[Rfam]
The family of this 374-nucleotide part of an RNA from Pseudoxanthomonas suwonensis is "Bacterial large subunit ribosomal RNA". It scores 2857 bits against the family's covariance model. Rfam links the family to the GO terms structural constituent of ribosome and ribosome. The organism belongs to Pseudoxanthomonas suwonensis, within Bacteria.
RNA sequence: GAUAAUGCGGGUGAAAAGCCCGCACGCCGAAAGCCCAAGGUUUCCUUGCGCAACGUUAAUCGGCGCAGGGUGAGUCGGCCCCUAAGGCGAGGGCGAAAGCCGUAGUCGAUGGGAAGCUGGUUAAUAUUCCAGCACCUCGCGUGAGUGCGAUGGGGGGACGGAGAAGGUUAGGUCUACCGGGCGUUGGUUGUCCCGGGGAAAGGCGGUAGGUGGAUCUCUUUGGCAAAUCCGGGAGGUCAACACCGAGCACCGAGACGAGCCCUUUAGGGCGAAGUGACUGAUACCACGCUUCCAGGAAAAGCCCCUAAGCUUCAGCUCACGCAGACCGUACCGUAAACCGACACAGGUGGGUAGGAUGAGAAUUCUCAGGCGCU
Numbered sequence: 001g002a003u004a005a006u007g008c009g010g011g012u013g014a015a016a017a018g019c020c021c022g023c024a025c026g027c028c029g030a031a032a033g034c035c036c037a038a039g040g041u042u043u044c045c046u047u048g049c050g051c052a053a054c055g056u057u058a059a060u061c062g063g064c065g066c067a068g069g070g071u072g073a074g075u076c077g078g079c080c081c082c083u084a085a086g087g088c089g090a091g092g093g094c095g096a097a098a099g100c101c102g103u104a105g106u107c108g109a110u111g112g113g114a115a116g117c118u119g120g121u122u123a124a125u126a127u128u129c130c131a132g133c134a135c136c137u138c139g140c141g142u143g144a145g146u147g148c149g150a151u152g153g154g155g156g157g158a159c160g161g162a163g164a165a166g167g168u169u170a171g172g173u174c175u176a177c178c179g180g181g182c183g184u185u186g187g188u189u190g191u192c193c194c195g196g197g198g199a200a201a202g203g204c205g206g207u208a209g210g211u212g213g214a215u216c217u218c219u220u221u222g223g224c225a226a227a228u229c230c231g232g233g234a235g236g237u238c239a240a241c242a243c244c245g246a247g248c249a250c251c252g253a254g255a256c257g258a259g260c261c262c263u264u265u266a267g268g269g270c271g272a273a274g275u276g277a278c279u280g281a282u283a284c285c286a287c288g289c290u291u292c293c294a295g296g297a298a299a300a301g302c303c304c305c306u307a308a309g310c311u312u313c314a315g316c317u318c319a320c321g322c323a324g325a326c327c328g329u330a331c332c333g334u335a336a337a338c339c340g341a342c343a344c345a346g347g348u349g350g351g352u353a354g355g356a357u358g359a360g361a362a363u364u365c366u367c368a369g370g371c372g373c374u
Stems, first nucleotide, its partner, number of pairs: 006024006025372004033352004039332002044069002047067004054062002076328003081112002086107003090103001092101003116133005136324002139322008147310002152305004160292004166285003171279004177196005198256001202251002205248001209244003214237007222230002259270004338347002354366003